[Rfam]
RNA sequence: UGCAUUGCCAUGGUAUCUGCACUCAGUAGUUUAUUCCUGCUGGGUGUCCAAAGAUCAGUGCCAUAGAAAUUCAGUAUCUAGCAUCACUGAUUUUCUUGGCUUUGUGCUUGUUAAAACUUGGUAUUUCUAUUGACACAGUA
Numbered sequence: 001u002g003c004a005u006u007g008c009c010a011u012g013g014u015a016u017c018u019g020c021a022c023u024c025a026g027u028a029g030u031u032u033a034u035u036c037c038u039g040c041u042g043g044g045u046g047u048c049c050a051a052a053g054a055u056c057a058g059u060g061c062c063a064u065a066g067a068a069a070u071u072c073a074g075u076a077u078c079u080a081g082c083a084u085c086a087c088u089g090a091u092u093u094u095c096u097u098g099g100c101u102u103u104g105u106g107c108u109u110g111u112u113a114a115a116a117c118u119u120g121g122u123a124u125u126u127c128u129a130u131u132g133a134c135a136c137a138g139u140a
Base pairs, nucleotide, nucleotide: 002061003060004059005058006057007056015055016054017053018052019047020046021045022044023043024042025041026040027039028038029037064129065128066127067126068125069124070123071121072120073119074118080108081107082106083105084104

The family of this 140-nucleotide RNA sequence is "Small nucleolar RNA SNORA8".
Its Rfam clan is "SNORA8 clan".
ACA8 is a member of the H/ACA class of snoRNA that guide the sites of modification of uridines to pseudouridines.
Its family is annotated with RNA processing and nucleolus in the Gene Ontology.